[Rfam]
RNA sequence: UUGCACGUACUCUCCCGGGCUUCUCUGAAUUAUCUUUGAAGAACAGAGCCCCAAUAGUCGUGCUAAAGCCUCGCCGUUUUACGUGUUGCAGUAUAGCCUUUGCUUUUCCACCGGCUCUUCUGUGUCAAAUUAGCGGCUACAUCU
Number, nucleotide and partner (000 for none) at each position: 001u000002u000003g063004c062005a061006c060007g059008u000009a000010c057011u056012c000013u000014c000015c000016c000017g051018g050019g049020c048021u047022u045023c000024u042025c041026u040027g000028a000029a000030u000031u000032a000033u000034c000035u000036u000037u000038g000039a000040a026041g025042a024043a000044c000045a022046g000047a021048g020049c019050c018051c017052c000053a000054a000055u000056a011057g010058u000059c007060g006061u005062g004063c003064u000065a000066a000067a000068g000069c000070c000071u000072c000073g137074c136075c135076g134077u133078u132079u000080u000081a000082c000083g000084u127085g126086u000087u124088g123089c122090a121091g120092u000093a000094u000095a000096g115097c114098c113099u000100u000101u000102g000103c000104u000105u000106u000107u000108c000109c000110a000111c000112c000113g098114g097115c096116u000117c000118u000119u000120c091121u090122g089123u088124g087125u000126c085127a084128a000129a000130u000131u000132a078133g077134c076135g075136g074137c073138u000139a000140c000141a000142u000143c000144u000

The family of this 144-nucleotide RNA sequence from Corchorus capsularis is "small nucleolar RNA snoR134". Pairs were carried over by alignment from the consensus structure, which was predicted with RNAalifold. Its family is annotated with nucleolus and RNA processing in the Gene Ontology. The source organism's lineage runs through Eukaryota, Streptophytina, Euphyllophyta, Apeibeae and Corchorus. The family's RNA type in Rfam is H/ACA-box small nucleolar RNA.